The record is a 93-nucleotide RNA sequence from Delphinapterus leucas, which matches "mir-544 microRNA precursor family" in Rfam. The family has 16 seed sequences and 10,750 matches in Rfam 15.1. Lineage of the source: Eukaryota > Opisthokonta > Teleostomi > Dipnotetrapodomorpha > Delphinapterus. The match comes from Rfam's covariance-model search (69 bits). The literature on the family includes a 2010 paper in Genes Dev by Chiang et al., "Mammalian microRNAs: experimental evaluation of novel and previously annotated genes".
RNA sequence: AUCACCUGGGGAUUUUGUGAAAAUGAAGAUUCUGAUUUAGUGGGGCUGGAGCCUGAGUUUCUGCAUUUCUAACAAGCCCUCAGGUGAUGCUGU
Number, nucleotide and partner (000 for none) at each position: 001a000002u000003c086004a085005c084006c000007u000008g000009g080010g079011g078012a000013u000014u076015u075016u074017g073018u072019g000020a070021a068022a067023a066024u000025g064026a000027a062028g061029a060030u000031u000032c057033u056034g000035a000036u000037u000038u000039a000040g000041u000042g000043g000044g000045g000046c000047u000048g000049g000050a000051g000052c000053c000054u000055g000056a033057g032058u000059u000060u029061c028062u027063g000064c025065a000066u023067u022068u021069c000070u020071a000072a018073c017074a016075a015076g014077c000078c011079c010080u009081c000082a000083g000084g005085u004086g003087a000088u000089g000090c000091u000092g000093u000